[Rfam]
RNA sequence: UAACCGGGACGGCCCGGCUACUAAAGUUUGAUGCGGGACGACCCG
Numbered sequence: 001u002a003a004c005c006g007g008g009a010c011g012g013c014c015c016g017g018c019u020a021c022u023a024a025a026g027u028u029u030g031a032u033g034c035g036g037g038a039c040g041a042c043c044c045g
Stems, first nucleotide, its partner, number of pairs: 001020002004017005034045004